[Rfam]
This 57-nucleotide RNA from Trabulsiella odontotermitis belongs to the Rfam family "Enterobacterial sRNA STnc450". The match comes from Rfam's covariance-model search (51 bits). By type it is a small RNA. Pairs were carried over by alignment from the consensus structure, which was predicted with CMfinder.

RNA sequence: CGCUAUACUAACCACGAAAUCACCGGUCCAGUGCCUUCGGACCGGUUUUUCUUGUCA
Numbered sequence: 001c002g003c004u005a006u007a008c009u010a011a012c013c014a015c016g017a018a019a020u021c022a023c024c025g026g027u028c029c030a031g032u033g034c035c036u037u038c039g040g041a042c043c044g045g046u047u048u049u050u051c052u053u054g055u056c057a
Stems, first nucleotide, its partner, number of pairs: 002012001004010002016051004022046008